[Rfam]
Nucleotides: 350
Stems, first nucleotide, its partner, number of pairs: 001346007020319008032307009043293005048059004052069004108130007134169006141161003145157003149184006189214005195208002200229005232268009242258003249284003254279002323339005
Number, partner (000 for none) and nucleotide at each position: 001346g002345g003344g004343g005342u006341u007340g008000u009000u010000a011000c012000g013000g014000a015000u016000u017000c018000g019000a020319c021318a022317g023316g024315c025314a026313c027312u028000a029000u030000g031000a032307g033306g034305c035304a036303u037302g038301u039300u040299u041000u042000g043293c044292a045291a046290c047289u048059c049058a050057u051056c052069g053068g054067c055066a056051g057050a058049u059048g060000u061000a062000a063000a064000a065000a066055u067054g068053c069052c070000a071000g072000u073000u074000a075000a076000a077000u078000a079000u080000a081000a082000c083000u084000g085000c086000a087000a088000a089000a090000a091000a092000u093000a094000c095000a096000a097000a098000c099000u100000c101000u102000u103000a104000c105000g106000c107000u108130u109129u110128a111127g112126c113125u114124g115000c116000c117000u118000a119000a120000a121000a122000a123000c124114c125113a126112g127111c128110u129109a130108g131000c132000g133000u134169g135168a136167c137166u138165u139164c140000u141161u142160c143159a144000a145157g146156a147155u148000u149184g150183c151182u152181u153180g154179u155147g156146u157145c158000c159143u160142g161141a162000u163000a164139g165138a166137a167136g168135u169134c170000u171000c172000a173000a174000a175000a176000a177000c178000a179154g180153c181152a182151a183150g184149c185000u186000a187000c188000g189214a190213c191212u192211a193210a194000a195208g196207c197000c198000u199000u200229g201228u202227c203226u204225a205000g206000a207196g208195c209000c210193u211192u212191a213190g214189u215000a216000a217000g218000a219000g220000a221000u222000u223000u224000a225204u226203a227202g228201a229200c230000u231000c232268g233267c234266u235265a236264a237263g238262u239261a240260a241000u242258g243257g244256c245000u246000u247000g248000a249284g250283u251282u252000a253000u254279g255278u256244g257243u258242c259000c260240u261239u262238a263237c264236u265235u266234a267233g268232u269000c270000a271000a272000a273000a274000c275000a276000a277000g278255a279254c280000a281000u282251a283250a284249c285000c286000u287000a288000u289047g290046g291045u292044u293043g294000u295000a296000g297000a298000c299040a300039a301038a302037u303036a304035u305034g306033u307032u308000g309000g310000c311000a312027g313026g314025u315024g316023u317022u318021u319020g320000g321000a322000c323339g324338u325337g326336g327335g328000u329000u330000c331000g332000a333000c334000u335327c336326c337325c338324a339323c340007c341006a342005g343004c344003u345002c346001c347000a348000u349000u350000a